[Rfam]
RNA sequence: UGCUCUGUGAUUAUGUGCCUACAAUGGGCAAUAUACGUUAUUCUGAUUAAGAACAUGACUGAUAACUUUUGAGAGAAAUUAUGAGAGCA
Numbered sequence: 001u002g003c004u005c006u007g008u009g010a011u012u013a014u015g016u017g018c019c020u021a022c023a024a025u026g027g028g029c030a031a032u033a034u035a036c037g038u039u040a041u042u043c044u045g046a047u048u049a050a051g052a053a054c055a056u057g058a059c060u061g062a063u064a065a066c067u068u069u070u071g072a073g074a075g076a077a078a079u080u081a082u083g084a085g086a087g088c089a
Stems, first nucleotide, its partner, number of pairs: 001089005

The family of this 89-nucleotide RNA from Malus baccata is "Small nucleolar RNA U54". Rfam describes the family as follows. U54 is a C/D box small nucleolar RNA, which acts as a methylation guide for 18S ribosomal RNA in plants. The family has 21 seed sequences and 614 matches in Rfam 15.1. On this family, see Chen et al., Nucleic Acids Res 2003: "The high diversity of snoRNAs in plants: identification and comparative study of 120 snoRNA genes from Oryza sativa". The family's consensus secondary structure was predicted with PFOLD. The organism belongs to Malus, within Eukaryota. It scores 49 bits against the family's covariance model.